A member of the RNA family "MIR2629 microRNA precursor family" from Medicago truncatula, 72 nucleotides long. The family's consensus secondary structure was predicted with RNAalifold.

RNA sequence: UGCCGAGGAAAACCUUGGUAGUUAACUGCAGCCGGUUUCCACAAAAUUUGGCAGUUAACUGCCGAAUGGCAU
Numbered sequence: 001u002g003c004c005g006a007g008g009a010a011a012a013c014c015u016u017g018g019u020a021g022u023u024a025a026c027u028g029c030a031g032c033c034g035g036u037u038u039c040c041a042c043a044a045a046a047u048u049u050g051g052c053a054g055u056u057a058a059c060u061g062c063c064g065a066a067u068g069g070c071a072u
Stems, first nucleotide, its partner, number of pairs: 015065015

NCBI's taxonomy places the organism under Eukaryota, Streptophytina, Euphyllophyta, Hologalegina, Medicago.